[Rfam]
RNA sequence: CUGUUACCGAUAAUGGCACUGGUAGAAUUCACGGUUAGCGCAGUUCUGCUCACGUGAUGCGUGACACGUGACCGUGGCUUCCCCGGUGUCAUACUUGGUGCCAG
Numbered sequence: 001c002u003g004u005u006a007c008c009g010a011u012a013a014u015g016g017c018a019c020u021g022g023u024a025g026a027a028u029u030c031a032c033g034g035u036u037a038g039c040g041c042a043g044u045u046c047u048g049c050u051c052a053c054g055u056g057a058u059g060c061g062u063g064a065c066a067c068g069u070g071a072c073c074g075u076g077g078c079u080u081c082c083c084c085g086g087u088g089u090c091a092u093a094c095u096u097g098g099u100g101c102c103a104g
Base pairs, nucleotide, nucleotide: 003102005100006099007098008097009096010095013092014091015090016089017088018087020085021084022083025080026079029077030076031075032074033073034072035071036070037069